[Rfam]
RNA sequence: AGUUAAAUACAUCUCCGAGCCCGGUUCCCUAAAGCGAAAAAGCCAUGGGGCCAGGGCCGACAGGGUGUACGGGGAAACCCGUGCGCCUCCCGGUGCGGAAAGGAGAUGGUUACAAUGACGU
Numbered sequence: 001a002g003u004u005a006a007a008u009a010c011a012u013c014u015c016c017g018a019g020c021c022c023g024g025u026u027c028c029c030u031a032a033a034g035c036g037a038a039a040a041a042g043c044c045a046u047g048g049g050g051c052c053a054g055g056g057c058c059g060a061c062a063g064g065g066u067g068u069a070c071g072g073g074g075a076a077a078c079c080c081g082u083g084c085g086c087c088u089c090c091c092g093g094u095g096c097g098g099a100a101a102g103g104a105g106a107u108g109g110u111u112a113c114a115a116u117g118a119c120g121u
Stems, first nucleotide, its partner, number of pairs: 003115002011107006019057004024052001026050004034043002063088011089098002
Molybdenum/Tungsten riboswitch aptamer (Moco RNA motif): a 121-nucleotide sequence from Desulfofundulus thermobenzoicus. A search with the family's covariance model found it, with a score of 80 bits. NCBI's taxonomy places the organism under Bacteria, Bacillota, Clostridia, Eubacteriales, Desulfofundulus.